[Rfam]
RNA sequence: GAAAUUCUUCGGGGCAGGGUGAAAUUCCCGACCGGCGGUAUAGUCCGCGACCUGAUAUUCUGAUACAUCAUGAAGUUAAACUGUUAACAUCAUGGAGAACACAGUCUAUCAGUUGAUUUGGUGAGAUUCCAAAACCGACAGUAAAGUCUGGAUGUGAGAAGAUAAAU
Numbered sequence: 001g002a003a004a005u006u007c008u009u010c011g012g013g014g015c016a017g018g019g020u021g022a023a024a025u026u027c028c029c030g031a032c033c034g035g036c037g038g039u040a041u042a043g044u045c046c047g048c049g050a051c052c053u054g055a056u057a058u059u060c061u062g063a064u065a066c067a068u069c070a071u072g073a074a075g076u077u078a079a080a081c082u083g084u085u086a087a088c089a090u091c092a093u094g095g096a097g098a099a100c101a102c103a104g105u106c107u108a109u110c111a112g113u114u115g116a117u118u119u120g121g122u123g124a125g126a127u128u129c130c131a132a133a134a135c136c137g138a139c140a141g142u143a144a145a146g147u148c149u150g151g152a153u154g155u156g157a158g159a160a161g162a163u164a165a166a167u
Base pairs, nucleotide, nucleotide: 006162007161008160009159010158017029018028019027031147032146033137034136035048036047037046038045043135044134052112053111054110055109056108057107117133118132119131120130121129139150140149141148

A member of the RNA family "FMN riboswitch aptamer (RFN element)" from Anaerocolumna sedimenticola, 167 nucleotides long. Taxonomically the source falls in Anaerocolumna (Bacteria, Bacillati, Lachnospirales, Lachnospiraceae).